[Rfam]
RNA sequence: UAAAAGUACCAUCGUGAUAGGUAGUUUUGAACCAGGUCAGAGUCGGAAGGCAGCAGCCUUAAGAAAUCAACUAUGUGCGAUGGCCUUUUUAUUAAA
Numbered sequence: 001u002a003a004a005a006g007u008a009c010c011a012u013c014g015u016g017a018u019a020g021g022u023a024g025u026u027u028u029g030a031a032c033c034a035g036g037u038c039a040g041a042g043u044c045g046g047a048a049g050g051c052a053g054c055a056g057c058c059u060u061a062a063g064a065a066a067u068c069a070a071c072u073a074u075g076u077g078c079g080a081u082g083g084c085c086u087u088u089u090u091a092u093u094a095a096a
Stems, first nucleotide, its partner, number of pairs: 004090003008086001009083006015075001017074004022069001023067001025065004034059004042051003